[Rfam]
The record is a 78-nucleotide RNA sequence from Aquibium carbonis, which matches "Makes More Granules Regulator RNA (mmgR)" in Rfam.
A search with the family's covariance model found it, with a score of 62 bits.
Pairs were carried over by alignment from the consensus structure.
RNA sequence: CGUUCAUGCCCUCCUUGGGCGUUUCCUCCCUAGACUCGGGCCGCGUCGUGAAAGCGAUGCGGUCUUUUUUUGCCGUGU
Numbered sequence: 001c002g003u004u005c006a007u008g009c010c011c012u013c014c015u016u017g018g019g020c021g022u023u024u025c026c027u028c029c030c031u032a033g034a035c036u037c038g039g040g041c042c043g044c045g046u047c048g049u050g051a052a053a054g055c056g057a058u059g060c061g062g063u064c065u066u067u068u069u070u071u072g073c074c075g076u077g078u
Stems, first nucleotide, its partner, number of pairs: 008020004040063009